Shown here is an 84-nucleotide RNA sequence from Mastacembelus armatus, a member of the family "Small nucleolar RNA SNORD35".
The family is grouped with related families in Rfam's "SNORD35 clan".
The match comes from Rfam's covariance-model search (63 bits).
Rfam links the family to the GO terms nucleolus and RNA processing.
About the family: U35 is a C/D box snoRNA located in intron 6 of ribosomal protein L13A and intron 3 of ribosomal protein S11 in humans and at homologous positions in mouse and chicken ribosomal protein genes. U35 guides the methylation of 2'-O-ribose sites in 28S rRNA.
RNA sequence: UGCAAGUGAUGUUUUUCUCACGAUGGUCUUCCAAGCCAGCACGGUUCUGACGAAGAUGCCUUUUGGCAAAGCUGAUGCAGUGAC
Numbered sequence: 001u002g003c004a005a006g007u008g009a010u011g012u013u014u015u016u017c018u019c020a021c022g023a024u025g026g027u028c029u030u031c032c033a034a035g036c037c038a039g040c041a042c043g044g045u046u047c048u049g050a051c052g053a054a055g056a057u058g059c060c061u062u063u064u065g066g067c068a069a070a071g072c073u074g075a076u077g078c079a080g081u082g083a084c
Stems, first nucleotide, its partner, number of pairs: 001079004